[Rfam]
RNA: mir-412 microRNA precursor family
RNA sequence: GGGCGCGGGACGGAUGGUCGACCAGUUGGAAAGUAAUUGCUCCUAAUGUACUUCACCUGGUCCACUAGCCGUCGGCGCCCACUGCAG
Dot-bracket structure: ((((((..(((((.((((.((((((.(((..((((((((....)))).))))))).)))))).)))).))))).)))))).......